[Rfam]
Background
The family of this 66-nucleotide RNA from Atopomonas hussainii is "Pseudomonas sRNA P26". About the family: This small RNA (sRNA) was computationally identified in the genome of the opportunistic pathogen Pseudomonas aeruginosa and its expression verified by northern blot analysis. P26 is conserved across many Gammaproteobacteria species and appears to be consistently located between the DNA directed RNA polymerase (beta subunit) and 50S ribosomal protein L7/L12 genes. It is annotated as a non-coding RNA gene. Pairs were carried over by alignment from the consensus structure, which was predicted with RNAalifold.
RNA sequence: CUGCUCGCGUCGACAGUCCGGCGCUUUGCGUCGGACUGAUGGCUGGUGGCCUAAAGCCACCGGCCU
Numbered sequence: 001c002u003g004c005u006c007g008c009g010u011c012g013a014c015a016g017u018c019c020g021g022c023g024c025u026u027u028g029c030g031u032c033g034g035a036c037u038g039a040u041g042g043c044u045g046g047u048g049g050c051c052u053a054a055a056g057c058c059a060c061c062g063g064c065c066u
Stems, first nucleotide, its partner, number of pairs: 014038005022030002041065010